[Rfam]
RNA sequence: AAGCGAGGACGACCUCCCCCCGGACGGGGAAGCACCCCGGGACGACCCGG
Numbered sequence: 001a002a003g004c005g006a007g008g009a010c011g012a013c014c015u016c017c018c019c020c021c022g023g024a025c026g027g028g029g030a031a032g033c034a035c036c037c038c039g040g041g042a043c044g045a046c047c048c049g050g
Stems, first nucleotide, its partner, number of pairs: 003018001005016004037050005

This 50-nucleotide sequence from Primorskyibacter sedentarius belongs to the Rfam family "Guanidine-II riboswitch aptamer (mini-ykkC)". NCBI's taxonomy places the organism under Bacteria, Pseudomonadota, Alphaproteobacteria, Rhodobacterales, Primorskyibacter.